The family of this 205-nucleotide sequence from Viridibacillus arenosi is "Bacillus sRNA ncr1575". The match comes from Rfam's covariance-model search (92 bits). Lineage of the source: Bacteria > Bacilli > Caryophanales > Caryophanaceae > Viridibacillus arenosi.
[Rfam]
RNA sequence: UGUAAUAACUUUGAAGGGAAGAUGAGUGGACAAUGUUAAACUAAUUCUAUUUUUUACAAAAGAGUAUAUACAUGUACUUGUAAAAUUGGAUUAGUCUGCUCAUUUAUCAUAUUUCGAAGAACCUAAUACGAAAAAAUAGGUUUAUUUGUCAUGAAUAAAUAUAUUGAAUCGACUAAUCCUUCCAAAUUAAUGGGGGGAUUUUUUG
Number, nucleotide and partner (000 for none) at each position: 001u000002g000003u000004a000005a000006u000007a000008a000009c000010u000011u000012u000013g000014a000015a000016g108017g107018g000019a105020a000021g000022a000023u102024g101025a100026g099027u000028g000029g096030a095031c094032a000033a000034u000035g000036u000037u000038a000039a000040a000041c000042u093043a092044a091045u090046u089047c088048u000049a086050u085051u084052u083053u082054u000055u000056a000057c000058a000059a000060a000061a000062g000063a078064g077065u076066a000067u000068a000069u000070a000071c000072a000073u000074g000075u000076a065077c064078u063079u000080g000081u000082a053083a052084a051085a050086u049087u000088g047089g046090a045091u044092u043093a042094g031095u030096c029097u000098g000099c026100u025101c024102a023103u000104u000105u019106a000107u017108c016109a000110u000111a000112u000113u000114u000115c000116g000117a147118a146119g000120a000121a141122c140123c139124u138125a137126a000127u135128a000129c000130g000131a000132a000133a000134a000135a127136a000137u125138a124139g123140g122141u121142u000143u000144a000145u000146u118147u117148g000149u000150c000151a000152u000153g000154a000155a000156u000157a000158a000159a000160u000161a000162u000163a000164u000165u000166g000167a000168a000169u000170c000171g000172a000173c000174u000175a200176a199177u198178c197179c196180u195181u194182c193183c192184a191185a000186a000187u000188u000189a000190a000191u184192g183193g182194g181195g180196g179197g178198a177199u176200u175201u000202u000203u000204u000205g000